[Rfam]
RNA sequence: GAUUCAACAUUAUAAAAGGGAGGUACAACAUGUACAAAAUUUUUAGUUUCGUUUCAUUAAUACUUAGUAUGCUAUGUUUUAUGGGAUUACAAGUUUUAAAUGUCAUUCAAAAAAAUGUCAUAUUAUUAUCACUAUUUGAUAGCCAAGAUUUUAACGACAUCCAUUUUUUCGGGAGUUUAUUAGUAGUA
Numbered sequence: 001g002a003u004u005c006a007a008c009a010u011u012a013u014a015a016a017a018g019g020g021a022g023g024u025a026c027a028a029c030a031u032g033u034a035c036a037a038a039a040u041u042u043u044u045a046g047u048u049u050c051g052u053u054u055c056a057u058u059a060a061u062a063c064u065u066a067g068u069a070u071g072c073u074a075u076g077u078u079u080u081a082u083g084g085g086a087u088u089a090c091a092a093g094u095u096u097u098a099a100a101u102g103u104c105a106u107u108c109a110a111a112a113a114a115a116u117g118u119c120a121u122a123u124u125a126u127u128a129u130c131a132c133u134a135u136u137u138g139a140u141a142g143c144c145a146a147g148a149u150u151u152u153a154a155c156g157a158c159a160u161c162c163a164u165u166u167u168u169u170c171g172g173g174a175g176u177u178u179a180u181u182a183g184u185a186g187u188a
Base pairs, nucleotide, nucleotide: 009184010183011182012181019162020161021160023035024034025033026032049157050156051155052154053153057099058098059097060096062094063093064092065091067090068089069088072085073084100121101120102119104117105116106115107114126142127141128140129139130138163176164175165174166173167172